[Rfam]
RNA sequence: UGGUACUCUGAGCUUCUUUACAGUGUUGCCUUGUAGCCUGGUGAUCAAGCAGCAUUGUACAGGGCUAACAGAGCACUC
Numbered sequence: 001u002g003g004u005a006c007u008c009u010g011a012g013c014u015u016c017u018u019u020a021c022a023g024u025g026u027u028g029c030c031u032u033g034u035a036g037c038c039u040g041g042u043g044a045u046c047a048a049g050c051a052g053c054a055u056u057g058u059a060c061a062g063g064g065c066u067a068a069c070a071g072a073g074c075a076c077u078c
Base pairs, nucleotide, nucleotide: 014064015063016062017061019059020058021057022056023055024054025053026052027051028050030049031048032047033046